[Rfam]
RNA sequence: UCGACCGUGAGGUCGAAUCUGAAGGAAGCCGGCGGCAAACCUCCGGCCUGAGGAACACGAAUCUCAUAUAAGGCCAGCGUUCGUUGGAUGAGCCUGCACAACAAGGCGAAGUUCAUACUGCCGAAGGCGAGCGAAGGUAAAUGAGGCAGGUAGAUGGAGGGGAAGAUGGCGCU
Dot-bracket structure: ((((((....))))))...........(.((....(...(((((((((((...........((((((.....(((..((((((..((((..((((........))))...)))).............))))))..)))..)))))))))))...))))))....)....)).)
The family of this 173-nucleotide sequence from Aneurinibacillus sp. XH2 is "Group II catalytic intron D1-D4-3". The match comes from Rfam's covariance-model search (143 bits). NCBI's taxonomy places the organism under Bacteria, Bacillota, Bacilli, Caryophanales, Aneurinibacillus. Group II introns are found in rRNA, tRNA and mRNA of organelles in fungi, plants and protists, and also in mRNA in bacteria. Its family is annotated with Group II intron splicing in the Gene Ontology.